This 69-nucleotide RNA sequence from Zizania palustris belongs to the Rfam family "Plastid-clpP 5UTR RNA". The source organism's lineage runs through Eukaryota, Embryophyta, Tracheophyta, Poales and Zizania. The base pairs follow the family's consensus structure, which was predicted with LocARNA. Rfam describes the family as follows. Plastid clpP is a non-coding RNA (ncRNA) recognised in plastids. It was found in the prime untranslated region (5UTR) of a protease complex subunit (clpP) in plastids, suggesting a posible cis-regulatory function.
[Rfam]
RNA sequence: AAUUUUGUUCAUAAGGAGAAAGAGAAGCAGAUCUAUUCUAUACUCCAUAACUACCAAUAUGCAAUGGGU
Numbered sequence: 001a002a003u004u005u006u007g008u009u010c011a012u013a014a015g016g017a018g019a020a021a022g023a024g025a026a027g028c029a030g031a032u033c034u035a036u037u038c039u040a041u042a043c044u045c046c047a048u049a050a051c052u053a054c055c056a057a058u059a060u061g062c063a064a065u066g067g068g069u
Base pairs, nucleotide, nucleotide: 003022004021006019008017009016010015043068044067045066052059053058